Description: This 112-nucleotide RNA sequence from Sorghum bicolor belongs to the Rfam family "MIR5565 microRNA precursor family". Taxonomically the source falls in Sorghum (Eukaryota, Viridiplantae, Euphyllophyta, Liliopsida). The base pairs follow the family's consensus structure, which was predicted with RNAalifold. Gene Ontology terms of the family: miRNA-mediated post-transcriptional gene silencing and RISC complex.

RNA sequence: AUAGUUGGAUUCGCAUCAAUUCACAUGUGUUGGGAUGGAUGGAUUGGAGUAAAACUUAAACUAAAUUUCACCACAAUCCACUUCAACACACGUGAUUGAGGUAAAUCCGACA
Numbered sequence: 001a002u003a004g005u006u007g008g009a010u011u012c013g014c015a016u017c018a019a020u021u022c023a024c025a026u027g028u029g030u031u032g033g034g035a036u037g038g039a040u041g042g043a044u045u046g047g048a049g050u051a052a053a054a055c056u057u058a059a060a061c062u063a064a065a066u067u068u069c070a071c072c073a074c075a076a077u078c079c080a081c082u083u084c085a086a087c088a089c090a091c092g093u094g095a096u097u098g099a100g101g102u103a104a105a106u107c108c109g110a111c112a
Stems, first nucleotide, its partner, number of pairs: 004111008013102002016099005022094003026090007040080007049071002
Dot-bracket structure: ...((((((((.((.(((((.(((.(((((((.......(((((((..((...................))..)))))))...))))))).)))))))).)).)))))))).